[Rfam]
RNA sequence: GUUUACCACUAGGGGAGUCGCGUGACGCGGCUGAGAUGGACGAGGUCCAGACCCUUUGAACCUGAUCUAGUUCACGCUAGCGUAGGGAAGUGGGCGAACCGAUUG
Number, nucleotide and partner (000 for none) at each position: 001g000002u000003u000004u000005a000006c093007c092008a091009c090010u089011a055012g054013g053014g052015g000016a000017g031018u030019c029020g028021c027022g000023u000024g000025a000026c000027g021028c020029g019030g018031c017032u000033g000034a000035g000036a000037u000038g048039g047040a046041c045042g000043a000044g000045g041046u040047c039048c038049a000050g000051a000052c014053c013054c012055u011056u000057u000058g000059a000060a000061c086062c085063u084064g083065a000066u000067c080068u079069a078070g077071u000072u000073c000074a000075c000076g000077c070078u069079a068080g067081c000082g000083u064084a063085g062086g061087g000088a000089a010090g009091u008092g007093g006094g000095c000096g000097a000098a000099c000100c000101g000102a000103u000104u000105g000
RNA: TPP riboswitch aptamer (THI element)